Rfam assigns this 181-nucleotide RNA sequence from Cohnella nanjingensis to the family "c-di-AMP riboswitch aptamer (ydaO/yuaA leader)". A reference for the family is Barrick et al. (2004), "New RNA motifs suggest an expanded scope for riboswitches in bacterial genetic control", Proc Natl Acad Sci U S A. This family represents a conserved RNA structure found upstream of the ydaO and yuaA genes in Bacillus subtilis and related genes in other bacteria.
RNA sequence: CAUACUACCCAGCCGAAUUUCUGCAAGAAAACGGGGGAACCACAGAUUCAAGCGCCUUUCGCUCGCGCGACGCGAGCCAAGGUGCCGGGGUGAAUUCCGCAGCGCGCCGCCGCGCCGGAUAGGGCAACUGUUCAAGCCCGAACCCGUCAGCUAACCUCGUAGGCUGUUCAUGAACAGGACU
Numbered sequence: 001c002a003u004a005c006u007a008c009c010c011a012g013c014c015g016a017a018u019u020u021c022u023g024c025a026a027g028a029a030a031a032c033g034g035g036g037g038a039a040c041c042a043c044a045g046a047u048u049c050a051a052g053c054g055c056c057u058u059u060c061g062c063u064c065g066c067g068c069g070a071c072g073c074g075a076g077c078c079a080a081g082g083u084g085c086c087g088g089g090g091u092g093a094a095u096u097c098c099g100c101a102g103c104g105c106g107c108c109g110c111c112g113c114g115c116c117g118g119a120u121a122g123g124g125c126a127a128c129u130g131u132u133c134a135a136g137c138c139c140g141a142a143c144c145c146g147u148c149a150g151c152u153a154a155c156c157u158c159g160u161a162g163g164c165u166g167u168u169c170a171u172g173a174a175c176a177g178g179a180c181u
Stems, first nucleotide, its partner, number of pairs: 011165004018030003031160006041087001088145003096119004122139004
Dot-bracket structure: ..........((((...(((.......)))((((((....(.............................................)(((.....((((................))))..((((..........))))...))).........)))))).))))................